[Rfam]
RNA sequence: UUAGGUUAUGGAGAUAUGUAUCCGGAGACGUGGUCGGGCAUGUUGGUGGGGGCGCUGUGUGCCCUCGCGGGAGUGCUGACUAUUGCCAUGCCCGUGCCCGUCAUUGUUAACAAC
Numbered sequence: 001u002u003a004g005g006u007u008a009u010g011g012a013g014a015u016a017u018g019u020a021u022c023c024g025g026a027g028a029c030g031u032g033g034u035c036g037g038g039c040a041u042g043u044u045g046g047u048g049g050g051g052g053c054g055c056u057g058u059g060u061g062c063c064c065u066c067g068c069g070g071g072a073g074u075g076c077u078g079a080c081u082a083u084u085g086c087c088a089u090g091c092c093c094g095u096g097c098c099c100g101u102c103a104u105u106g107u108u109a110a111c112a113a114c
Base pairs, nucleotide, nucleotide: 002113004111008107009106010105011104013102014101015100018097019096020095021094037077038076039075040074049063050062
Rfam assigns this 114-nucleotide RNA sequence from Sinocyclocheilus grahami to the family "Potassium channel RNA editing signal". By type it is a cis-regulatory element. About the family: This family represents a group of sequences related to the human potassium channel Kv1.1 hairpin element which directs the efficient modification of an adenosine to inosine by an adenosine deaminase acting on RNA (ADAR). Taxonomically the source falls in Sinocyclocheilus (Eukaryota, Bilateria, Cypriniphysae, Cyprinoidei).